[Rfam]
A member of the RNA family "Actinobacteria sRNA Ms_AS-8" from Mycolicibacterium austroafricanum, 73 nucleotides long. For this family Rfam cites "Identification of small RNAs in Mycobacterium smegmatis using heterologous Hfq" (Li et al., RNA, 2013). The organism belongs to Mycolicibacterium austroafricanum, within Bacteria. It is annotated as a small RNA.

RNA sequence: CAUGAUCGGACCUUCGGAUAUUCAGAUCAUCCUCGGGAAGGUGCGCCCACUUUCACGCCCCCACACCGAGGCU
Numbered sequence: 001c002a003u004g005a006u007c008g009g010a011c012c013u014u015c016g017g018a019u020a021u022u023c024a025g026a027u028c029a030u031c032c033u034c035g036g037g038a039a040g041g042u043g044c045g046c047c048c049a050c051u052u053u054c055a056c057g058c059c060c061c062c063a064c065a066c067c068g069a070g071g072c073u
Base pairs, nucleotide, nucleotide: 003029004028005027006026007025008023009022010021037054038053039052040051041050042049043048